[Rfam]
Nucleotides: 046
Stems, first nucleotide, its partner, number of pairs: 006021006
Number, partner (000 for none) and nucleotide at each position: 001000a002000c003000a004000a005000c006021g007020g008019c009018u010017c011016u012000u013000u014000u015000a016011a017010g018009a019008g020007c021006c022000a023000c024000a025000c026000a027000c028000c029000u030000c031000a032000a033000a034000c035000u036000a037000a038000a039000g040000a041000c042000c043000g044000u045000u046000c